The family of this 98-nucleotide sequence from Sporolactobacillus laevolacticus is "pan motif". Pairs were carried over by alignment from the consensus structure, which is taken from published work. The source organism's lineage runs through Bacteria, Bacillati, Caryophanales, Sporolactobacillaceae and Sporolactobacillus laevolacticus. A search with the family's covariance model found it, with a score of 37 bits.
[Rfam]
RNA sequence: UCGGCUGCAUUUCUUUGGAAAGCGGUACGUUGGCCCGGCUAUUUACGCAAAUCAGAUAAAAGUCUGCUAUGAUCCGGAUUCCGGACAUGGACGGAGGA
Numbered sequence: 001u002c003g004g005c006u007g008c009a010u011u012u013c014u015u016u017g018g019a020a021a022g023c024g025g026u027a028c029g030u031u032g033g034c035c036c037g038g039c040u041a042u043u044u045a046c047g048c049a050a051a052u053c054a055g056a057u058a059a060a061a062g063u064c065u066g067c068u069a070u071g072a073u074c075c076g077g078a079u080u081c082c083g084g085a086c087a088u089g090g091a092c093g094g095a096g097g098a
Base pairs, nucleotide, nucleotide: 002029003028004026005025006024007023008022010021011020064094065093066092067090068089069088070087071086073085074084075083